[Rfam]
RNA sequence: GUUUGUGUGAUGAUCUAAUUGUCGGAUACCCCUUCACUCGGCUGAGUGAUCACUUCGAUCUGAUGAAC
Numbered sequence: 001g002u003u004u005g006u007g008u009g010a011u012g013a014u015c016u017a018a019u020u021g022u023c024g025g026a027u028a029c030c031c032c033u034u035c036a037c038u039c040g041g042c043u044g045a046g047u048g049a050u051c052a053c054u055u056c057g058a059u060c061u062g063a064u065g066a067a068c
Stems, first nucleotide, its partner, number of pairs: 001068005
Shown here is a 68-nucleotide RNA sequence from Leptobrachium leishanense, a member of the family "Small nucleolar RNA SNORD101".
The base pairs follow the family's consensus structure, which was predicted with PFOLD.
Rfam classes the family as a C/D-box small nucleolar RNA.